[Rfam]
RNA sequence: UGGGAGGAGAUGAAAAGUUACAAAUGCAUAGUUCAACUGAAUGUCUACGACUGCUGUUGAGAUUAUUCCAUUAAAGUCAUUCGCUCCUAUCUGAUCCUCCAC
Numbered sequence: 001u002g003g004g005a006g007g008a009g010a011u012g013a014a015a016a017g018u019u020a021c022a023a024a025u026g027c028a029u030a031g032u033u034c035a036a037c038u039g040a041a042u043g044u045c046u047a048c049g050a051c052u053g054c055u056g057u058u059g060a061g062a063u064u065a066u067u068c069c070a071u072u073a074a075a076g077u078c079a080u081u082c083g084c085u086c087c088u089a090u091c092u093g094a095u096c097c098u099c100c101a102c
Stems, first nucleotide, its partner, number of pairs: 004099005